[Rfam]
RNA sequence: CCCUCGCUCAAAGGAUCGCAUCGAAGCUUACACACAGAGUGUCAUCGUGACAUCUCUCUGACCCGCUUUGGGAGAAAGUCCCCGGACAUCAGACUCUUCGCGGUCUGCACUUUCAGCAACGAACCGCCAUAGAAGCGCGGCCUCCCCACAUCUAACAGCAGCCCGACGCUCUACCACCGCCCGUACUCUUUACGCCACCGUGGUCCGACACCUCGUGCUGUAGAACUGGCACCUGGACGAUGAUAUGAGUCCGCCAGUCCCUACAUCUCGUGCGUAGACGUCUCGGUGUGGUACAGAGGAGGUGUGCGGGUGUAGAGGUUGCUGGUGGCUUGGAGGGUUUUCUCGUCCAGUGUGUAGUUAUGCGAUUGCCUCCCUCAUCCCCUAGGUAUAUGGGCGACGCGGGAGGUAACUCAAUGGGGCUUAUUCUUGGUGCGAGG
Numbered sequence: 001c002c003c004u005c006g007c008u009c010a011a012a013g014g015a016u017c018g019c020a021u022c023g024a025a026g027c028u029u030a031c032a033c034a035c036a037g038a039g040u041g042u043c044a045u046c047g048u049g050a051c052a053u054c055u056c057u058c059u060g061a062c063c064c065g066c067u068u069u070g071g072g073a074g075a076a077a078g079u080c081c082c083c084g085g086a087c088a089u090c091a092g093a094c095u096c097u098u099c100g101c102g103g104u105c106u107g108c109a110c111u112u113u114c115a116g117c118a119a120c121g122a123a124c125c126g127c128c129a130u131a132g133a134a135g136c137g138c139g140g141c142c143u144c145c146c147c148a149c150a151u152c153u154a155a156c157a158g159c160a161g162c163c164c165g166a167c168g169c170u171c172u173a174c175c176a177c178c179g180c181c182c183g184u185a186c187u188c189u190u191u192a193c194g195c196c197a198c199c200g201u202g203g204u205c206c207g208a209c210a211c212c213u214c215g216u217g218c219u220g221u222a223g224a225a226c227u228g229g230c231a232c233c234u235g236g237a238c239g240a241u242g243a244u245a246u247g248a249g250u251c252c253g254c255c256a257g258u259c260c261c262u263a264c265a266u267c268u269c270g271u272g273c274g275u276a277g278a279c280g281u282c283u284c285g286g287u288g289u290g291g292u293a294c295a296g297a298g299g300a301g302g303u304g305u306g307c308g309g310g311u312g313u314a315g316a317g318g319u320u321g322c323u324g325g326u327g328g329c330u331u332g333g334a335g336g337g338u339u340u341u342c343u344c345g346u347c348c349a350g351u352g353u354g355u356a357g358u359u360a361u362g363c364g365a366u367u368g369c370c371u372c373c374c375u376c377a378u379c380c381c382c383u384a385g386g387u388a389u390a391u392g393g394g395c396g397a398c399g400c401g402g403g404a405g406g407u408a409a410c411u412c413a414a415u416g417g418g419g420c421u422u423a424u425u426c427u428u429g430g431u432g433c434g435a436g437g
Stems, first nucleotide, its partner, number of pairs: 002437006008430004014367006021072001022070006037053001039051002076422003080419004092105004251336002254333003261328003270320001273317001306313002369406006
RNA: RNase MRP
Organism: Periconia digitata